The family of this 77-nucleotide sequence from Microcaecilia unicolor is "Mammalian CPEB3 ribozyme".
The organism belongs to Microcaecilia, within Eukaryota.
The family has 14 seed sequences and 5,706 matches in Rfam 15.1.

RNA sequence: UCUGGCUCUGGGGGACAUAGCAGAAAAUGUUCACAUCAUGCUCUCUGUCAUAUUCCUGGAGAGCUGUGAAUUCUGCU
Numbered sequence: 001u002c003u004g005g006c007u008c009u010g011g012g013g014g015a016c017a018u019a020g021c022a023g024a025a026a027a028u029g030u031u032c033a034c035a036u037c038a039u040g041c042u043c044u045c046u047g048u049c050a051u052a053u054u055c056c057u058g059g060a061g062a063g064c065u066g067u068g069a070a071u072u073c074u075g076c077u
Stems, first nucleotide, its partner, number of pairs: 011045004016040001019077007027039003049066002053062002